Rfam assigns this 109-nucleotide sequence from Acer saccharum to the family "Small nucleolar RNA snoR99". Lineage of the source: Eukaryota > Streptophyta > Pentapetalae > malvids > Acer. On this family, see Marker et al., Curr Biol 2002: "Experimental RNomics: identification of 140 candidates for small non-messenger RNAs in the plant Arabidopsis thaliana". Rfam links the family to the GO terms nucleolus and RNA processing. The family has 9 seed sequences and 733 matches in Rfam 15.1. It scores 91 bits against the family's covariance model.

RNA sequence: GUGCUUUUGGAAUGAACAAGUCCCUUAUAUUUACUUGUCAUCCAUCCCAAUCACUUUGUCAGCAGUCUACUCUCUGGUUUCUUGCUGAUCAUUAGAGGGUGGGAAAUCU
Numbered sequence: 001g002u003g004c005u006u007u008u009g010g011a012a013u014g015a016a017c018a019a020g021u022c023c024c025u026u027a028u029a030u031u032u033a034c035u036u037g038u039c040a041u042c043c044a045u046c047c048c049a050a051u052c053a054c055u056u057u058g059u060c061a062g063c064a065g066u067c068u069a070c071u072c073u074c075u076g077g078u079u080u081c082u083u084g085c086u087g088a089u090c091a092u093u094a095g096a097g098g099g100u101g102g103g104a105a106a107u108c109u
Base pairs, nucleotide, nucleotide: 041103042102043101044100045099046098058089059088060087061086062085063084064083065082